Shown here is a 213-nucleotide RNA, a member of the family "PAGEV RNA". Rfam's curators put it in the seed alignment.
[Rfam]
RNA sequence: UCCGAUUUGGACUCAAGAUGCUUUGGAUCGGACUACGUAUUUCUAAGCUGGCGAUCAAGGGAUUCCAUGAGCCAGCAAGUGAACCCAGCACUGAUGAAUGUUGUAAUAGUCACCCCGUUCCAGCGGCCUAGACGGGGGGUAGAGCGAAUGUUAAUAGUCAGUGUUGCCAACGCUUUGGAGGACGGUUUUAAACCGCUAAAGUUGGGCGUAGGG
Numbered sequence: 001u002c003c004g005a006u007u008u009g010g011a012c013u014c015a016a017g018a019u020g021c022u023u024u025g026g027a028u029c030g031g032a033c034u035a036c037g038u039a040u041u042u043c044u045a046a047g048c049u050g051g052c053g054a055u056c057a058a059g060g061g062a063u064u065c066c067a068u069g070a071g072c073c074a075g076c077a078a079g080u081g082a083a084c085c086c087a088g089c090a091c092u093g094a095u096g097a098a099u100g101u102u103g104u105a106a107u108a109g110u111c112a113c114c115c116c117g118u119u120c121c122a123g124c125g126g127c128c129u130a131g132a133c134g135g136g137g138g139g140u141a142g143a144g145c146g147a148a149u150g151u152u153a154a155u156a157g158u159c160a161g162u163g164u165u166g167c168c169a170a171c172g173c174u175u176u177g178g179a180g181g182a183c184g185g186u187u188u189u190a191a192a193c194c195g196c197u198a199a200a201g202u203u204g205g206g207c208g209u210a211g212g213g
Stems, first nucleotide, its partner, number of pairs: 001032007047076006064179004086166010110147002114139003167206001168204003183195004